[Rfam]
RNA sequence: CGAGUUGGACGGGCGACCGCGUCGGACGGUUCGCCGUCCGCCGAGGAAAGUCCGGACUCCACAGGGCAGGGUGGUGGGUAACGCCCACCCGGGGUGACCCGCGGGACAGUGCCACAGAAAACAGACCGCCGAUCGGCCCGCAAGGGCGGAUCGGUAAGGGUGAAACGGUGGUGUAAGAGACCACCAGCGCUCCGGGUGACCGGAGCGGCUAGGUAAACCCCACCCGGAGCAAGGCCAGACAGGAUGCGCUCGAGGGCUGCUCGCCCGAGUAUCCGGGUAGGCCGCACGAGGACGCCGGCAACGGCGCCCCGAGAUGGAUGGUCGUCGCAGGCCGGGUUCGCCCGGCCUGGCACAAGAUCCGGCUUACAGUCCAGCUCGUCCG
Dot-bracket structure: ((((((((((((((((((.((.((((((......)))))).))....[[[.[[[[[((((...[[[[.((((((((((.....)))))(((((....)))).)((...(((((............(((((((((.((((....)))).)))))))..)).......((((((.......)))))).(((((((((....)))))))).)..)))..)))))))))))))...((((.....((((((......((((.]]]]))))..)))))).....))))......((.(((((....))))).))..........)))))))...............................]]]]]]]].).))))))))))....
RNA: Bacterial RNase P class A